RNA sequence: AAAAUAAGGGCGUAUGGGGGAUGCCUGGGCUCUCAGAGGCGAAGAAGGACGUGAUAAGCUGCGAAAAGCCACGGGGAACUGCACACGAGUGUUGAUCCGUGGAUAUCCGAAUGGGGCAACCCGGCUGGUUGAAGGCCAGUCACCUCGCAAGAGGGGCAAACCCGCUGAACUGAAACAUCUAAGUAGGCGGAGGAAGAGAAAACAAUAGUGAUUCCGAAAGUAGUGGCGAGCGAAAUCGGAUUAGUCCAAACCAAUGUUGUUUCGGCAACAUUGGGGUUGUAGGACCACGACAUUUGGCGCGCAAUGAACUGGAACCCUUUGGAAAGAGGGGCCGUAGACGGUGAUAGCCCGGUACAGGCAAAGAGCGUUGCCAAUAGUGGUAUCCUGAGUAGUGCGGGGCACGUGAAACCCUGUAUGAAUCCGGCGGGACCAUCCGCCAAGACUAAAUACUCCUGAGAGACCGAUAGUGAACCAGUACCGUGAGGGAAAGGUGAAAAGAACCGUGAAUAACGGAGUGAAACAGAUCCUGAAACCAUACGCUUACAAG
Numbered sequence: 001a002a003a004a005u006a007a008g009g010g011c012g013u014a015u016g017g018g019g020g021a022u023g024c025c026u027g028g029g030c031u032c033u034c035a036g037a038g039g040c041g042a043a044g045a046a047g048g049a050c051g052u053g054a055u056a057a058g059c060u061g062c063g064a065a066a067a068g069c070c071a072c073g074g075g076g077a078a079c080u081g082c083a084c085a086c087g088a089g090u091g092u093u094g095a096u097c098c099g100u101g102g103a104u105a106u107c108c109g110a111a112u113g114g115g116g117c118a119a120c121c122c123g124g125c126u127g128g129u130u131g132a133a134g135g136c137c138a139g140u141c142a143c144c145u146c147g148c149a150a151g152a153g154g155g156g157c158a159a160a161c162c163c164g165c166u167g168a169a170c171u172g173a174a175a176c177a178u179c180u181a182a183g184u185a186g187g188c189g190g191a192g193g194a195a196g197a198g199a200a201a202a203c204a205a206u207a208g209u210g211a212u213u214c215c216g217a218a219a220g221u222a223g224u225g226g227c228g229a230g231c232g233a234a235a236u237c238g239g240a241u242u243a244g245u246c247c248a249a250a251c252c253a254a255u256g257u258u259g260u261u262u263c264g265g266c267a268a269c270a271u272u273g274g275g276g277u278u279g280u281a282g283g284a285c286c287a288c289g290a291c292a293u294u295u296g297g298c299g300c301g302c303a304a305u306g307a308a309c310u311g312g313a314a315c316c317c318u319u320u321g322g323a324a325a326g327a328g329g330g331g332c333c334g335u336a337g338a339c340g341g342u343g344a345u346a347g348c349c350c351g352g353u354a355c356a357g358g359c360a361a362a363g364a365g366c367g368u369u370g371c372c373a374a375u376a377g378u379g380g381u382a383u384c385c386u387g388a389g390u391a392g393u394g395c396g397g398g399g400c401a402c403g404u405g406a407a408a409c410c411c412u413g414u415a416u417g418a419a420u421c422c423g424g425c426g427g428g429a430c431c432a433u434c435c436g437c438c439a440a441g442a443c444u445a446a447a448u449a450c451u452c453c454u455g456a457g458a459g460a461c462c463g464a465u466a467g468u469g470a471a472c473c474a475g476u477a478c479c480g481u482g483a484g485g486g487a488a489a490g491g492u493g494a495a496a497a498g499a500a501c502c503g504u505g506a507a508u509a510a511c512g513g514a515g516u517g518a519a520a521c522a523g524a525u526c527c528u529g530a531a532a533c534c535a536u537a538c539g540c541u542u543a544c545a546a547g
Stems, first nucleotide, its partner, number of pairs: 008542010023527001024491002028462002030459007037451002039157002047108003050063003069102007078090003113122003123141007143154004161192001162190005172179002202209002212447001213240005223231002243444004251274007281386003285380004295373005305363001309357003315330005333337001339351003392416008423438005478485002501513004

Shown here is a 547-nucleotide part of an RNA from Flagellimonas eckloniae, a member of the family "Bacterial large subunit ribosomal RNA". NCBI's taxonomy places the organism under Bacteria, Bacteroidota, Flavobacteriales, Flavobacteriaceae, Flagellimonas. On this family, see Yusupov et al., Science 2001: "Crystal structure of the ribosome at 5.5 A resolution". Its family is annotated with structural constituent of ribosome and ribosome in the Gene Ontology. The family has 102 seed sequences and 51,934 matches in Rfam 15.1.